[Rfam]
RNA: mir-399 microRNA precursor family
Organism: Raphanus sativus
RNA sequence: GACUGGAUUACUGGGCGAUUACUCCUAUGGCAGAUGGUUUUGGCUUGCUUGAGAUGCAAGAAAAAUGUUUCUCUGCCAAAGGAGAUUUGCCCCGCAAUUCAUCC
Numbered sequence: 001g002a003c004u005g006g007a008u009u010a011c012u013g014g015g016c017g018a019u020u021a022c023u024c025c026u027a028u029g030g031c032a033g034a035u036g037g038u039u040u041u042g043g044c045u046u047g048c049u050u051g052a053g054a055u056g057c058a059a060g061a062a063a064a065a066u067g068u069u070u071c072u073c074u075g076c077c078a079a080a081g082g083a084g085a086u087u088u089g090c091c092c093c094g095c096a097a098u099u100c101a102u103c104c
Stems, first nucleotide, its partner, number of pairs: 005100005011094001013092006022084004028078007